Annotation:
The record is a 78-nucleotide RNA from Tricholaema leucomelas, which matches "mir-103/107 microRNA precursor family" in Rfam. Rfam 15.1 lists 1,982 matches to the family in 645 species. The source organism's lineage runs through Eukaryota, Tetrapoda, Archelosauria, Telluraves and Tricholaema lacrymosa.
RNA sequence: CUGGGCUCUCAGCUUCUUUACAGUGCUGCCUUGUUGCGUUCAUGUCAAGCAGCAUUGUACAGGGCUAUGAAAGAACAG
Numbered sequence: 001c002u003g004g005g006c007u008c009u010c011a012g013c014u015u016c017u018u019u020a021c022a023g024u025g026c027u028g029c030c031u032u033g034u035u036g037c038g039u040u041c042a043u044g045u046c047a048a049g050c051a052g053c054a055u056u057g058u059a060c061a062g063g064g065c066u067a068u069g070a071a072a073g074a075a076c077a078g
Stems, first nucleotide, its partner, number of pairs: 014064004019059010030049004